[Rfam]
RNA sequence: CAUUAUUACUUUUGGUACGCGCUGUGACACUUCAAACUCGUACCGUGAGUAAUAAUGCG
Numbered sequence: 001c002a003u004u005a006u007u008a009c010u011u012u013u014g015g016u017a018c019g020c021g022c023u024g025u026g027a028c029a030c031u032u033c034a035a036a037c038u039c040g041u042a043c044c045g046u047g048a049g050u051a052a053u054a055a056u057g058c059g
Stems, first nucleotide, its partner, number of pairs: 001057010013045007021037001
Annotation:
Rfam assigns this 59-nucleotide RNA sequence from Canis lupus to the family "mir-126 microRNA precursor family". Rfam's curators put it in the seed alignment. The organism belongs to Canis lupus, within Eukaryota. Rfam links the family to the GO terms miRNA-mediated post-transcriptional gene silencing and RISC complex. The literature on the family includes a 2005 paper in Nucleic Acids Res by Altuvia et al., "Clustering and conservation patterns of human microRNAs".